[Rfam]
RNA sequence: CCAUCCAGUCGCACAUGCGGUUGGAUAUUUCUCCUCUAUUUUCUCCUUUGUAGAUUCGCGCUCGUUGCAAAACGAGCGCAUUUUU
Numbered sequence: 001c002c003a004u005c006c007a008g009u010c011g012c013a014c015a016u017g018c019g020g021u022u023g024g025a026u027a028u029u030u031c032u033c034c035u036c037u038a039u040u041u042u043c044u045c046c047u048u049u050g051u052a053g054a055u056u057c058g059c060g061c062u063c064g065u066u067g068c069a070a071a072a073c074g075a076g077c078g079c080a081u082u083u084u085u
Stems, first nucleotide, its partner, number of pairs: 003026009035054005058079008
This 85-nucleotide RNA sequence from Kingella oralis belongs to the Rfam family "Neisseria metabolic switch regulator b (RcoF1/NgncR163)". From the family's description: Sibling sRNA described and independently named in three publications. NgncR163 is N. gonorrhoeae while the others are N. meningitidis RNAs. RcoF1 stands for: RNA regulating colonization factor 1. NmsRb_RcoF1_NgncR163 was shown to be the predominant sibling. Rfam 15.1 lists 65 matches to the family in 50 species. The family's RNA type in Rfam is small RNA.